[Rfam]
RNA: Purine riboswitch aptamer
Organism: Mesobacillus zeae
RNA sequence: UAAGAUAUUAUCACAUAUUGUCGUAUAAUGUUGGGGAUAUGGCCCAAAAGUUUCUACCAAGCUGCCGUAAAGAGCUUGACUACGCUGAUUGUGAAAGAACGG
Numbered sequence: 001u002a003a004g005a006u007a008u009u010a011u012c013a014c015a016u017a018u019u020g021u022c023g024u025a026u027a028a029u030g031u032u033g034g035g036g037a038u039a040u041g042g043c044c045c046a047a048a049a050g051u052u053u054c055u056a057c058c059a060a061g062c063u064g065c066c067g068u069a070a071a072g073a074g075c076u077u078g079a080c081u082a083c084g085c086u087g088a089u090u091g092u093g094a095a096a097g098a099a100c101g102g
Stems, first nucleotide, its partner, number of pairs: 018088003022084004029049001031047005058078006